[Rfam]
RNA sequence: GCUGGGACCAACUGGGACCAGUUGCGUGGUCAAACGAAGUGUGUUUUGUCCGCUCUUGCCAGCUUCCUAGAGUAAAGGGGAGGUCUCUGUCUGCUUUGGGAGAGGCAACCGAAGUAGAUCGUUCCCCUCCACACACG
Numbered sequence: 001g002c003u004g005g006g007a008c009c010a011a012c013u014g015g016g017a018c019c020a021g022u023u024g025c026g027u028g029g030u031c032a033a034a035c036g037a038a039g040u041g042u043g044u045u046u047u048g049u050c051c052g053c054u055c056u057u058g059c060c061a062g063c064u065u066c067c068u069a070g071a072g073u074a075a076a077g078g079g080g081a082g083g084u085c086u087c088u089g090u091c092u093g094c095u096u097u098g099g100g101a102g103a104g105g106c107a108a109c110c111g112a113a114g115u116a117g118a119u120c121g122u123u124c125c126c127c128u129c130c131a132c133a134c135a136c137g
Stems, first nucleotide, its partner, number of pairs: 004067003008062001012058001026053004031048001036045002079130005087121001089119003093115007
Small Cajal body specific RNA 3: a 137-nucleotide RNA from Tinamus guttatus. Rfam's curators write: scaRNAs are a specific class of small nuclear RNAs which localise to the Cajal bodies and guide the modification of RNA polymerase II transcribed spliceosomal RNAs U1, U2, U4, U5 and U12. A search with the family's covariance model found it, with a score of 82 bits. By type it is a small Cajal body RNA. Gene Ontology terms of the family: nucleolus, Cajal body and RNA processing. Lineage of the source: Eukaryota > Metazoa > Euteleostomi > Archelosauria > Tinamus.